[Rfam]
RNA sequence: AUUAAAUACUAAGCGCCAGAACUCAAUAACUUGAGUUGACGAGGACAUGGUUUAUCGAAAAUUCGGCGGGUGCCAUGCGGUGUUACUACCACCGUAAACAGUUGUACAAAACCCAUAAGUGAUUAUGGAGACAAAGACAACUAGGUAGGUUU
Numbered sequence: 001a002u003u004a005a006a007u008a009c010u011a012a013g014c015g016c017c018a019g020a021a022c023u024c025a026a027u028a029a030c031u032u033g034a035g036u037u038g039a040c041g042a043g044g045a046c047a048u049g050g051u052u053u054a055u056c057g058a059a060a061a062u063u064c065g066g067c068g069g070g071u072g073c074c075a076u077g078c079g080g081u082g083u084u085a086c087u088a089c090c091a092c093c094g095u096a097a098a099c100a101g102u103u104g105u106a107c108a109a110a111a112c113c114c115a116u117a118a119g120u121g122a123u124u125a126u127g128g129a130g131a132c133a134a135a136g137a138c139a140a141c142u143a144g145g146u147a148g149g150u151u152u
Stems, first nucleotide, its partner, number of pairs: 020037007046077005055066004078094005100142006113128006